The family of this 73-nucleotide RNA from Alaudala cheleensis is "tRNA". By type it is a transfer RNA. Rfam 15.1 lists 5,335,975 matches to the family in 14,413 species.
[Rfam]
RNA sequence: GCCCCAGUUGCCUAAUGGAUAAGGCAUUGGCCUCCUAAGCCAGGGAUUGUGGGUUCGAGUCCCAUCUGGGGUG
Numbered sequence: 001g002c003c004c005c006a007g008u009u010g011c012c013u014a015a016u017g018g019a020u021a022a023g024g025c026a027u028u029g030g031c032c033u034c035c036u037a038a039g040c041c042a043g044g045g046a047u048u049g050u051g052g053g054u055u056c057g058a059g060u061c062c063c064a065u066c067u068g069g070g071g072u073g
Base pairs, nucleotide, nucleotide: 001072002071003070004069005068006067007066010025011024012023013022027043028042029041030040031039049065050064051063052062053061